[Rfam]
A member of the RNA family "mir-95 microRNA precursor family" from Carlito syrichta, 79 nucleotides long. Rfam 15.1 lists 318 matches to the family in 132 species. The family's consensus secondary structure was predicted with RNAalifold.
RNA sequence: UACAAGUGGGUGUUCAAUAAUUAUUUGUUGAAUGAAUGAAUGAAUUAUUCAACAAAUAAUUAUUGAACACCCACUUGUA
Numbered sequence: 001u002a003c004a005a006g007u008g009g010g011u012g013u014u015c016a017a018u019a020a021u022u023a024u025u026u027g028u029u030g031a032a033u034g035a036a037u038g039a040a041u042g043a044a045u046u047a048u049u050c051a052a053c054a055a056a057u058a059a060u061u062a063u064u065g066a067a068c069a070c071c072c073a074c075u076u077g078u079a
Base pairs, nucleotide, nucleotide: 001079002078003077006074007073008072009071010070011069013067014066015065016064017063018062020060021059022058023057024056025055026054027053028052029051030050031049033047034046035045